[Rfam]
The family of this 83-nucleotide RNA sequence from Cupriavidus gilardii is "Burkholderia RNA 7 (anti-hemB)". It scores 76 bits against the family's covariance model. Rfam describes the family as follows. This RNA motif was identified by computational search in b-proteobacteria Burkholderia. Co-purified with Hfq, expression confirmed by Northern blot. Its family is annotated with protein binding and bacterial biofilm matrix in the Gene Ontology. The literature on the family includes a 2007 paper in Nucleic Acids Res by Weinberg et al., "Identification of 22 candidate structured RNAs in bacteria using the CMfinder comparative genomics pipeline".
Nucleotides: 083
Base pairs, nucleotide, nucleotide: 004026005025006024007023008022009021029046030045031044032043033042034041056075057074058073059072060071061070062069063068
Number, partner (000 for none) and nucleotide at each position: 001000u002000c003000c004026c005025c006024c007023g008022c009021u010000a011000c012000u013000c014000c015000u016000c017000c018000c019000u020000g021009a022008g023007c024006g025005g026004g027000u028000a029046c030045c031044c032043g033042u034041g035000g036000u037000c038000a039000u040000a041034c042033a043032c044031g045030g046029g047000a048000a049000a050000a051000u052000u053000c054000a055000u056075c057074c058073c059072c060071g061070u062069u063068g064000c065000u066000u067000g068063c069062a070061g071060c072059g073058g074057g075056g076000u077000u078000u079000u080000u081000u082000u083000u